[Rfam]
RNA sequence: AAGCUAAAUAGUAAUGUACCGAAGACAGUAGGUGGCGAUUGCCUUAAUCAUUCCUACCGAGGACAAUCAUGAUUGUUAACAAUAAUCAGUCGUUCUCUAUGUCUACGGUGACAUGGAGUUUUUUUAUUUAUUCG
Numbered sequence: 001a002a003g004c005u006a007a008a009u010a011g012u013a014a015u016g017u018a019c020c021g022a023a024g025a026c027a028g029u030a031g032g033u034g035g036c037g038a039u040u041g042c043c044u045u046a047a048u049c050a051u052u053c054c055u056a057c058c059g060a061g062g063a064c065a066a067u068c069a070u071g072a073u074u075g076u077u078a079a080c081a082a083u084a085a086u087c088a089g090u091c092g093u094u095c096u097c098u099a100u101g102u103c104u105a106c107g108g109u110g111a112c113a114u115g116g117a118g119u120u121u122u123u124u125u126a127u128u129u130a131u132u133c134g
Base pairs, nucleotide, nucleotide: 028057029056030055031054032053034043035042036041095118096117097116098115099114100113101112102111103110
Rfam assigns this 134-nucleotide RNA sequence from Melissococcus plutonius to the family "Ribosomal protein L10 leader". The organism belongs to Melissococcus plutonius, within Bacteria. The family's RNA type in Rfam is cis-regulatory leader. From the family's description: This family is a putative r-protein leader autoregulatory structure found in B. subtilis and other low-GC Gram-positive bacteria. It is located in the 5' untranslated regions of mRNAs encoding ribosomal proteins L10 and L12 (rplJ-rplL). Rfam links the family to the GO term regulation of gene expression. Pairs were carried over by alignment from the consensus structure, which was predicted with CMfinder.